[Rfam]
Background:
The family of this 359-nucleotide part of an RNA from Halorientalis sp. IM1011 is "Archaeal large subunit ribosomal RNA". Rfam links the family to the GO terms ribosome and structural constituent of ribosome. The family is grouped with related families in Rfam's "LSU clan". The source organism's lineage runs through Archaea, Methanobacteriati, Methanobacteriota, Halobacteriales and Halorientalis.

Nucleotides: 359
Stems, first nucleotide, its partner, number of pairs: 001326004010321008019312003036060005045050001061083009084088001096305007103297002107121003124159008132149001136145003162292004167222003172219002174215005181210003189202004223241006242246001262278006340357005
Number, partner (000 for none) and nucleotide at each position: 001326c002325g003324g004323g005000g006000a007000c008000a009000a010321c011320c012319g013318a014317c015316g016315u017314u018000a019312g020311g021310g022000a023000a024000u025000u026000c027000g028000g029000c030000a031000a032000g033000u034000u035000a036060g037059u038058c039057c040056c041000g042000u043000a044000a045050g046000u047000u048000c049000g050045c051000g052000a053000u054000a055000a056040g057039g058038g059037a060036u061083g062082c063081c064080u065079g066078c067077c068076c069075c070000g071000g072000a073000a074000a075069g076068g077067g078066g079065c080064a081063g082062g083061u084088c085000u086000c087000a088084g089000u090000g091000a092000c093000u094000c095000g096305g097304g098303c099302g100301c101300u102299c103297c104296g105000a106000c107121u108120g109119u110000c111000u112000a113000g114000u115000a116000a117000c118000a119109a120108c121107a122000u123000a124159g125158g126157u127156g128155a129154c130153c131152g132149c133000a134000a135000a136145u137144c138143c139000g140000c141000a142000a143138g144137g145136a146000c147000u148000c149132g150000u151000a152131c153130g154129g155128u156127c157126a158125c159124u160000g161000a162292a163291u164290c165289c166000u167222g168221c169220c170000c171000a172219g173218u174215g175214c176213g177212g178211g179000u180000a181210u182209c183208u184000g185000a186000a187000c188000a189202c190201c191200u192199a193000g194000u195000a196000c197000a198000a199192u200191a201190g202189g203000a204000c205000g206000a207000a208183g209182g210181a211178c212177c213176c214175g215174u216000c217000a218173a219172c220169g221168g222167c223241g224240g225239g226238g227237g228236u229000a230000a231000c232000u233000a234000u235000g236228a237227c238226c239225c240224u241223c242246u243000u244000a245000a246242g247000g248000u249000a250000g251000c252000g253000u254000a255000g256000u257000a258000c259000c260000u261000u262278g263277c264276c265275g266274c267273u268000u269000c270000a271000g272000u273267a274266g275265c276264g277263g278262c279000u280000u281000g282000c283000a284000u285000g286000a287000a288000u289165g290164g291163a292162u293000u294000a295000a296104c297103g298000a299102g300101a301100g302099c303098g304097c305096c306000a307000c308000u309000g310021u311020c312019c313000c314017a315016a316015c317014g318013u319012u320011g321010g322000g323004c324003c325002c326001g327000g328000u329000g330000a331000a332000c333000u334000g335000u336000a337000c338000g339000u340357u341356c342355c343354a344353g345000u346000g347000c348000g349000g350000a351000g352000u353344c354343u355342g356341g357340a358000g359000a